[Rfam]
RNA sequence: UGUAUUAGAUGAUAAAUAUGCUUUAAAUCCCGUAUUUAAGGGGCUUUGUUAGGUUUUGUUAGAUUGGGUUAAAUUGUGGAGUGGUGAUCACGAUUGGACUUGAACCAACGACCACUACCA
Numbered sequence: 001u002g003u004a005u006u007a008g009a010u011g012a013u014a015a016a017u018a019u020g021c022u023u024u025a026a027a028u029c030c031c032g033u034a035u036u037u038a039a040g041g042g043g044c045u046u047u048g049u050u051a052g053g054u055u056u057u058g059u060u061a062g063a064u065u066g067g068g069u070u071a072a073a074u075u076g077u078g079g080a081g082u083g084g085u086g087a088u089c090a091c092g093a094u095u096g097g098a099c100u101u102g103a104a105c106c107a108a109c110g111a112c113c114a115c116u117a118c119c120a
Stems, first nucleotide, its partner, number of pairs: 024048003030042002033039001082117005091110002094108004

Rfam assigns this 120-nucleotide RNA sequence from Sulfurovum sp. NBC37-1 to the family "Bacterial antisense RNA HPnc0260". The organism belongs to Sulfurovum, within Bacteria. Rfam's curators put it in the seed alignment. The family's consensus secondary structure was predicted with CMfinder.